Rfam assigns this 118-nucleotide RNA from Glutamicibacter creatinolyticus to the family "SAM (S-adenosyl methionine) riboswitch aptamer". NCBI's taxonomy places the organism under Bacteria, Actinomycetes, Micrococcales, Micrococcaceae, Glutamicibacter. The literature on the family includes a 2008 paper in RNA by Weinberg et al., "The aptamer core of SAM-IV riboswitches mimics the ligand-binding site of SAM-I riboswitches". The base pairs follow the family's consensus structure, which is taken from published work.
[Rfam]
RNA sequence: AAUCAAGAGCGUCAGCUGACAAGCCCUGGCUAGCUGGCCGGCAACCCUCUAAACGGUAGUGGGGUGCUCCAGGUGAGGAUUCGGUUCCGCGCGCCACCGCGUGGAACAAGUACCGCAC
Numbered sequence: 001a002a003u004c005a006a007g008a009g010c011g012u013c014a015g016c017u018g019a020c021a022a023g024c025c026c027u028g029g030c031u032a033g034c035u036g037g038c039c040g041g042c043a044a045c046c047c048u049c050u051a052a053a054c055g056g057u058a059g060u061g062g063g064g065u066g067c068u069c070c071a072g073g074u075g076a077g078g079a080u081u082c083g084g085u086u087c088c089g090c091g092c093g094c095c096a097c098c099g100c101g102u103g104g105a106a107c108a109a110g111u112a113c114c115g116c117a118c
Stems, first nucleotide, its partner, number of pairs: 001081004009039001011038006022031002040068003045064003049059002084107010